[Rfam]
A member of the RNA family "Bacterial RNase P class A" from Thiohalomonas denitrificans, 370 nucleotides long.
Nucleotides: 370
Base pairs, nucleotide, nucleotide: 001366002365003364004363005362006361007360008359009358010357011355012335013334014333015332016331017330018329020036021035022034023033024032025031041353042352043351045350046349047348048347049346050225051224052223053222057272058271059270060269062221063220064219065218066217067081068080069079070078071077082096083094084093085092086091097216098215102214103213104210105209106208118154119153120150121149122148125145126144162180163179164178165177166176167175181204182202183201184200185199186198187196188195189194229292230291231290232289239283240282241281242280243279244278263277264276265275266274267273299318302315303314304313305312306311
Number, partner (000 for none) and nucleotide at each position: 001366g002365a003364a004363g005362u006361c007360g008359g009358c010357c011355g012335g013334a014333c015332a016331g017330u018329c019000g020036c021035u022034g023033c024032a025031c026000c027000u028000c029000g030000u031025g032024u033023g034022u035021g036020g037000a038000g039000g040000a041353a042352a043351g044000u045350c046349c047348g048347g049346g050225c051224u052223c053222c054000g055000c056000a057272g058271g059270g060269c061000a062221g063220g064219g065218u066217g067081c068080c069079a070078g071077g072000u073000a074000a075000c076000g077071c078070c079069u080068g081067g082096g083094c084093g085092g086091c087000g088000a089000g090000a091086g092085c093084c094083g095000a096082u097216g098215g099000a100000a101000a102214g103213u104210g105209c106208c107000g108000c109000a110000g111000a112000a113000a114000a115000u116000u117000a118154c119153c120150g121149c122148c123000g124000a125145u126144g127000g128000c129000c130000c131000u132000c133000c134000a135000c136000g137000g138000g139000a140000g141000g142000c143000g144126c145125a146000c147000a148122g149121g150120u151000a152000a153119g154118g155000g156000u157000g158000a159000a160000a161000a162180g163179g164178u165177g166176c167175g168000g169000u170000a171000a172000g173000a174000g175167c176166g177165c178164a179163c180162c181204g182202c183201g184200c185199g186198g187196g188195u189194g190000g191000u192000a193000a194189c195188a196187c197000g198186c199185c200184g201183c202182g203000g204181c205000a206000a207000a208106g209105g210104u211000a212000a213103a214102c215098c216097c217066c218065a219064c220063c221062c222053g223052g224051a225050g226000c227000a228000a229292g230291a231290c232289c233000a234000a235000a236000u237000a238000g239283g240282g241281g242280a243279a244278c245000a246000g247000g248000c249000g250000a251000u252000u253000u254000c255000g256000a257000u258000c259000g260000c261000c262000g263277c264276g265275u266274g267273u268000g269060g270059c271058c272057c273267g274266c275265a276264c277263g278244g279243u280242u281241c282240c283239c284000g285000g286000g287000u288000a289232g290231g291230u292229c293000g294000c295000u296000u297000g298000a299318g300000g301000c302315g303314c304313a305312c306311g307000g308000u309000g310000a311306c312305g313304u314303g315302u316000c317000g318299c319000c320000c321000a322000g323000a324000u325000g326000a327000a328000u329018g330017a331016c332015u333014g334013u335012c336000c337000c338000c339000g340000a341000c342000a343000g344000a345000a346049c347048c348047c349046g350045g351043c352042u353041u354000a355011c356000a357010g358009g359008c360007c361006g362005g363004c364003u365002u366001c367000c368000u369000c370000c